[Rfam]
Shown here is a 301-nucleotide RNA from Grus americana, a member of the family "Small Cajal body-specific RNA 7".
It is annotated as a small Cajal body RNA.
The source organism's lineage runs through Eukaryota, Gnathostomata, Teleostomi, Amniota and Grus.
The pairing is the family consensus, mapped onto this sequence.
The literature on the family includes a 2002 paper in EMBO J by Darzacq et al., "Cajal body-specific small nuclear RNAs: a novel class of 2'-O-methylation and pseudouridylation guide RNAs".
Rfam 15.1 lists 570 matches to the family in 531 species.
RNA sequence: UGGAAGUGAUGAAAUAGAGAUAAUGGGAUGUCAUUUUGAAUGGAGUGUGUGUGAUAAAUGGACUGGGGGUGGGGUGUGGGGAAUGUGUGUGUGCGUGCGUGUAUAGAAAAGGCUUUAAACGGGGGCACUGAUAAUGCAGUGCUGAUUCCGGAGUGCAUCUGAGGCAUGUUGUUAAGUUCUGGGGUGCCACUUUACAACGUUGCCAAUGAUUAAAGCCCAAAACAAGCCCACCAAGACAAGCCUAGGCAUCUUAAAUCUCUAACAGGUUCAUUAAUGAAAGUGAUCCUGUGAUCUGAUCUGA
Numbered sequence: 001u002g003g004a005a006g007u008g009a010u011g012a013a014a015u016a017g018a019g020a021u022a023a024u025g026g027g028a029u030g031u032c033a034u035u036u037u038g039a040a041u042g043g044a045g046u047g048u049g050u051g052u053g054a055u056a057a058a059u060g061g062a063c064u065g066g067g068g069g070u071g072g073g074g075u076g077u078g079g080g081g082a083a084u085g086u087g088u089g090u091g092u093g094c095g096u097g098c099g100u101g102u103a104u105a106g107a108a109a110a111g112g113c114u115u116u117a118a119a120c121g122g123g124g125g126c127a128c129u130g131a132u133a134a135u136g137c138a139g140u141g142c143u144g145a146u147u148c149c150g151g152a153g154u155g156c157a158u159c160u161g162a163g164g165c166a167u168g169u170u171g172u173u174a175a176g177u178u179c180u181g182g183g184g185u186g187c188c189a190c191u192u193u194a195c196a197a198c199g200u201u202g203c204c205a206a207u208g209a210u211u212a213a214a215g216c217c218c219a220a221a222a223c224a225a226g227c228c229c230a231c232c233a234a235g236a237c238a239a240g241c242c243u244a245g246g247c248a249u250c251u252u253a254a255a256u257c258u259c260u261a262a263c264a265g266g267u268u269c270a271u272u273a274a275u276g277a278a279a280g281u282g283a284u285c286c287u288g289u290g291a292u293c294u295g296a297u298c299u300g301a
Stems, first nucleotide, its partner, number of pairs: 001300004167199006174192001176187002179184001